[Rfam]
RNA sequence: CUACCCGUCUCAGUUAUCACAGUGCUGAUGCUGUCUAUUCUAAAGGUACAGUACUGUGAUAACUGAAGGAUGGCA
Numbered sequence: 001c002u003a004c005c006c007g008u009c010u011c012a013g014u015u016a017u018c019a020c021a022g023u024g025c026u027g028a029u030g031c032u033g034u035c036u037a038u039u040c041u042a043a044a045g046g047u048a049c050a051g052u053a054c055u056g057u058g059a060u061a062a063c064u065g066a067a068g069g070a071u072g073g074c075a
Stems, first nucleotide, its partner, number of pairs: 011065015027049001029048004
The record is a 75-nucleotide sequence from Hymenochirus boettgeri, which matches "mir-101 microRNA precursor family" in Rfam. The organism belongs to Hymenochirus, within Eukaryota. Rfam 15.1 lists 1,334 matches to the family in 644 species. Gene Ontology terms of the family: miRNA-mediated post-transcriptional gene silencing and RISC complex. A search with the family's covariance model found it, with a score of 91 bits.